Rfam assigns this 82-nucleotide RNA sequence from Scleropages formosus to the family "mir-221 microRNA precursor family".

RNA sequence: UCCAUGAGAUGCUCAGUAGUCAGUGUAGAUCCUGUGUUACACUCAGCAGCUACAUCUGGCUACUGGGUCUCUGAUGGUCCCC
Dot-bracket structure: ............((((((.(((((((((...((((..........)))))))))).))).))))))................
Numbered sequence: 001u002c003c004a005u006g007a008g009a010u011g012c013u014c015a016g017u018a019g020u021c022a023g024u025g026u027a028g029a030u031c032c033u034g035u036g037u038u039a040c041a042c043u044c045a046g047c048a049g050c051u052a053c054a055u056c057u058g059g060c061u062a063c064u065g066g067g068u069c070u071c072u073g074a075u076g077g078u079c080c081c082c
Stems, first nucleotide, its partner, number of pairs: 013066006020059003023055006032049004
Rfam links the family to the GO terms miRNA-mediated post-transcriptional gene silencing and RISC complex.